Background:
Shown here is a 107-nucleotide RNA sequence from Microbacterium sp. ZXX196, a member of the family "Glycine riboswitch aptamer". This family represents the bacterial glycine riboswitch. It scores 39 bits against the family's covariance model. Its family is annotated with glycine biosynthetic process in the Gene Ontology.
[Rfam]
RNA sequence: CGGCCGCUCUGAAAAGAGCAGCGCAGGUAGUGCCGCGCUGCCGCCGACGGUGAAAGGCGCGACCCCGGUCGCGUCGAAGCUCUCAGGUUCAUGACAGAGGGGGAGUU
Numbered sequence: 001c002g003g004c005c006g007c008u009c010u011g012a013a014a015a016g017a018g019c020a021g022c023g024c025a026g027g028u029a030g031u032g033c034c035g036c037g038c039u040g041c042c043g044c045c046g047a048c049g050g051u052g053a054a055a056g057g058c059g060c061g062a063c064c065c066c067g068g069u070c071g072c073g074u075c076g077a078a079g080c081u082c083u084c085a086g087g088u089u090c091a092u093g094a095c096a097g098a099g100g101g102g103g104a105g106u107u
Stems, first nucleotide, its partner, number of pairs: 004102002007099005018041007043088003046084002050082001052080001056075006